[Rfam]
RNA: TPP riboswitch aptamer (THI element)
Organism: Mesobacillus subterraneus
RNA sequence: UUUACCUGCUAGGGGAGCCUUUGUGAAGGCUGAGAUUAGAGUGAAACUUUAAGACCCUUUGAACCUGAUCUGGAUGAUACCAGCGUAGGGAAGUGGAGUAUGUAAAAA
Numbered sequence: 001u002u003u004a005c006c007u008g009c010u011a012g013g014g015g016a017g018c019c020u021u022u023g024u025g026a027a028g029g030c031u032g033a034g035a036u037u038a039g040a041g042u043g044a045a046a047c048u049u050u051a052a053g054a055c056c057c058u059u060u061g062a063a064c065c066u067g068a069u070c071u072g073g074a075u076g077a078u079a080c081c082a083g084c085g086u087a088g089g090g091a092a093g094u095g096g097a098g099u100a101u102g103u104a105a106a107a108a
Base pairs, nucleotide, nucleotide: 006096007095008094009093010092011058012057013056014055017030018029019028020027021026037051038050039049040048041047064089065088066087067086070083071082072081073080